[Rfam]
RNA sequence: GUGUAAAUGACGAGUUACUUGGGUUCCCCUUCGAGACAUCAAGGAUGAUGCAGACCUGAUUUUCGGAUGCA
Numbered sequence: 001g002u003g004u005a006a007a008u009g010a011c012g013a014g015u016u017a018c019u020u021g022g023g024u025u026c027c028c029c030u031u032c033g034a035g036a037c038a039u040c041a042a043g044g045a046u047g048a049u050g051c052a053g054a055c056c057u058g059a060u061u062u063u064c065g066g067a068u069g070c071a
Stems, first nucleotide, its partner, number of pairs: 002071004
Dot-bracket structure: .((((..............................................................))))
The record is a 71-nucleotide RNA sequence from Glycine max, which matches "Small nucleolar RNA snoR60" in Rfam. A search with the family's covariance model found it, with a score of 63 bits. NCBI's taxonomy places the organism under Eukaryota, Magnoliopsida, Papilionoideae, Phaseoleae, Glycine subgen. Soja. A reference for the family is Barneche et al. (2000), "Fibrillarin genes encode both a conserved nucleolar protein and a novel small nucleolar RNA involved in ribosomal RNA methylation in Arabidopsis thaliana", J Biol Chem. The family's consensus secondary structure was predicted with PFOLD. Gene Ontology terms of the family: nucleolus and RNA processing.